Shown here is a 74-nucleotide RNA from Ascaris suum, a member of the family "mir-86 microRNA precursor family".
It is one of the family's seed sequences.
NCBI's taxonomy places the organism under Eukaryota, Opisthokonta, Metazoa, Eumetazoa, Ascaris.
Its family is annotated with miRNA-mediated post-transcriptional gene silencing and RISC complex in the Gene Ontology.
Pairs were carried over by alignment from the consensus structure, which was predicted with RNAalifold.
[Rfam]
RNA sequence: GGCCAGUUAAGUGAAUGCUUUGCCACAGUCUUAGCAAUGAAAUAAGCUGGGCUGAGGUUCACUUACGCUGGAGG
Dot-bracket structure: ..(((..(((((((((.(((.(((.(((..................)))))).))))))))))))...)))...